RNA: Enterobacteria greA leader
RNA sequence: GUCAUACUACGGCCAACGCCCUGUAAAGUAAACGAUGACCCGUAGUGAACUUCGGGGUAAAAUGCGUAUCAAAUUAAAAAUUACUGCUGACCUGGGGCUUCGUACCCGGGUCGGUUUUCUUU
Numbered sequence: 001g002u003c004a005u006a007c008u009a010c011g012g013c014c015a016a017c018g019c020c021c022u023g024u025a026a027a028g029u030a031a032a033c034g035a036u037g038a039c040c041c042g043u044a045g046u047g048a049a050c051u052u053c054g055g056g057g058u059a060a061a062a063u064g065c066g067u068a069u070c071a072a073a074u075u076a077a078a079a080a081u082u083a084c085u086g087c088u089g090a091c092c093u094g095g096g097g098c099u100u101c102g103u104a105c106c107c108g109g110g111u112c113g114g115u116u117u118u119c120u121u122u
Stems, first nucleotide, its partner, number of pairs: 001039005010034002014028001040047001056070004086115011